Rfam assigns this 128-nucleotide RNA sequence to the family "Bacteriophage Diversity-Generating Retroelement RNA".

RNA sequence: GCUCUGCCAACGCUCGGGCUUGGCAGGCAGACCAAUCCACAUGUGGUCAGCCAGCGCUGUCCUGCUUCGGCAAAUACAUUUCGGGGUUCGGCAUAACGCCUAGUAGGAAAUCCAAAAGCGCAGCCGAC
Number, nucleotide and partner (000 for none) at each position: 001g028002c027003u000004c026005u025006g024007c023008c022009a021010a020011c000012g019013c018014u000015c000016g000017g000018g013019c012020u010021u009022g008023g007024c006025a005026g004027g002028c001029a000030g000031a000032c000033c000034a000035a000036u000037c000038c000039a000040c000041a000042u000043g000044u000045g000046g000047u000048c000049a000050g000051c000052c000053a000054g000055c000056g000057c000058u000059g000060u000061c000062c000063u072064g071065c070066u000067u000068c000069g000070g065071c064072a063073a000074a000075u000076a000077c000078a000079u000080u000081u000082c000083g000084g000085g000086g128087u000088u127089c126090g125091g124092c123093a000094u000095a000096a000097c120098g119099c118100c000101u000102a000103g000104u000105a000106g112107g000108a000109a000110a000111u000112c106113c000114a000115a000116a000117a000118g099119c098120g097121c000122a000123g092124c091125c090126g089127a088128c086
Notes: A reference for the family is Handa et al. (2025), "RNA control of reverse transcription in a diversity-generating retroelement", Nature.